[Rfam]
RNA sequence: GAAUCUUUGAUUUCUCAGCAGGGCCUUCAAUAAGACCCAGAGACCAAUUUUUGGGAACCCUUGCUGGAGCAAGGGUUA
Dot-bracket structure: ....................(((.(((....))).))).................(((((((((....))))))))).
RNA: SmY spliceosomal RNA